[Rfam]
RNA sequence: GUUUGAGCGGUGAUGACAUCAAUGUGGACAAGAGUUUCUGAUGCUACCUCUUCAGUAGUAUUUUUGAAGACAAACCCUUGGCUGUCUGAGCUCCCCC
Number, nucleotide and partner (000 for none) at each position: 001g097002u000003u000004u000005g093006a092007g091008c090009g000010g000011u000012g000013a000014u000015g000016a000017c000018a000019u000020c000021a000022a000023u000024g000025u000026g000027g000028a000029c000030a000031a000032g000033a000034g000035u069036u068037u067038c066039u000040g000041a000042u060043g059044c058045u057046a056047c055048c000049u000050c000051u000052u000053c000054a000055g047056u046057a045058g044059u043060a042061u000062u000063u000064u000065u000066g038067a037068a036069g035070a000071c000072a000073a000074a000075c000076c000077c000078u000079u000080g000081g000082c000083u000084g000085u000086c000087u000088g000089a000090g008091c007092u006093c005094c000095c000096c000097c001
Rfam assigns this 97-nucleotide RNA from Triticum turgidum to the family "Small nucleolar RNA Z157/R69/R10". Pairs were carried over by alignment from the consensus structure, which was predicted with PFOLD. Lineage of the source: Eukaryota > Tracheophyta > Poaceae > Triticodae > Triticum turgidum. The literature on the family includes a 2003 paper in Nucleic Acids Res by Chen et al., "The high diversity of snoRNAs in plants: identification and comparative study of 120 snoRNA genes from Oryza sativa". The match comes from Rfam's covariance-model search (66 bits). Its Rfam clan is "SNORD52 clan". The family's RNA type in Rfam is C/D-box small nucleolar RNA.